RNA sequence: AAUACAUGAUGACAACAGUUUCGGUCCCAAAUGAACACAGUGAUUACUGUAUGAGAUCUACUGAUAUU
Numbered sequence: 001a002a003u004a005c006a007u008g009a010u011g012a013c014a015a016c017a018g019u020u021u022c023g024g025u026c027c028c029a030a031a032u033g034a035a036c037a038c039a040g041u042g043a044u045u046a047c048u049g050u051a052u053g054a055g056a057u058c059u060a061c062u063g064a065u066a067u068u
Stems, first nucleotide, its partner, number of pairs: 001068004
RNA: Small nucleolar RNA SNORD73